Group II catalytic intron D1-D4-1: a 79-nucleotide sequence from Singulisphaera acidiphila.
For this family Rfam cites "The ins and outs of group II introns" (Bonen and Vogel, Trends Genet, 2001).
Pairs were carried over by alignment from the consensus structure.
RNA sequence: CACCGACCCGGCAACGGGGCGGGAUGAGGUGGGAGAAGUCAGCCGAGGCCGUAGUAGUCGGUAGCCACCGACGAAGGGC
Numbered sequence: 001c002a003c004c005g006a007c008c009c010g011g012c013a014a015c016g017g018g019g020c021g022g023g024a025u026g027a028g029g030u031g032g033g034a035g036a037a038g039u040c041a042g043c044c045g046a047g048g049c050c051g052u053a054g055u056a057g058u059c060g061g062u063a064g065c066c067a068c069c070g071a072c073g074a075a076g077g078g079c
Base pairs, nucleotide, nucleotide: 001026002025003022004021005020007018008017009016010015039046040045048079049078050077057072058071059070060069061068062067
Dot-bracket structure: (((((.((((....)))).)))..))............((....)).(((......((((((....))))))....)))